[Rfam]
RNA sequence: CUCUUAUCAAGAGCAGGCUGAGGGAUUAAGGCCCUAUGAAGCCCAGCAACCGACUGUAAUACCAUUGUGAAAUGGGGCGGAUACACCGCCGGAUUGCAAAAUCCGCAGAGCACGGUGCCAAUUCCACCAGAAAACACUUUUCUGGGAGAUGAGAG
Numbered sequence: 001c002u003c004u005u006a007u008c009a010a011g012a013g014c015a016g017g018c019u020g021a022g023g024g025a026u027u028a029a030g031g032c033c034c035u036a037u038g039a040a041g042c043c044c045a046g047c048a049a050c051c052g053a054c055u056g057u058a059a060u061a062c063c064a065u066u067g068u069g070a071a072a073u074g075g076g077g078c079g080g081a082u083a084c085a086c087c088g089c090c091g092g093a094u095u096g097c098a099a100a101a102u103c104c105g106c107a108g109a110g111c112a113c114g115g116u117g118c119c120a121a122u123u124c125c126a127c128c129a130g131a132a133a134a135c136a137c138u139u140u141u142c143u144g145g146g147a148g149a150u151g152a153g154a155g
Stems, first nucleotide, its partner, number of pairs: 001155008013044001016043003022034003030125002046118003050115002052111001123147001128144006
A member of the RNA family "SAM riboswitch aptamer (S box leader)" from Peribacillus muralis, 155 nucleotides long. About the family: The SAM riboswitch is found upstream of a number of genes which code for proteins involved in methionine or cysteine biosynthesis in Gram-positive bacteria. A search with the family's covariance model found it, with a score of 72 bits. Rfam 15.1 lists 9,625 matches to the family in 4,158 species.